[Rfam]
RNA sequence: GGCGGGUCCCUUCGCAUGGCCCGGCGGUGAACCUGGUCAGGUCGGGAACGAAGCAGCCACAGCCGUGCAGGGUCAGUGCCGAAGUAAGGCUCGCCUCU
Numbered sequence: 001g002g003c004g005g006g007u008c009c010c011u012u013c014g015c016a017u018g019g020c021c022c023g024g025c026g027g028u029g030a031a032c033c034u035g036g037u038c039a040g041g042u043c044g045g046g047a048a049c050g051a052a053g054c055a056g057c058c059a060c061a062g063c064c065g066u067g068c069a070g071g072g073u074c075a076g077u078g079c080c081g082a083a084g085u086a087a088g089g090c091u092c093g094c095c096u097c098u
Stems, first nucleotide, its partner, number of pairs: 004092005010084005015076001017075006024066005034059004042051003
Shown here is a 98-nucleotide RNA from Candidimonas nitroreducens, a member of the family "Bacterial small signal recognition particle RNA". The organism belongs to Candidimonas, within Bacteria. The family's RNA type in Rfam is non-coding RNA gene. About the family: The signal recognition particle (SRP) is a universally conserved ribonucleoprotein involved in the co-translational targeting of proteins to membranes.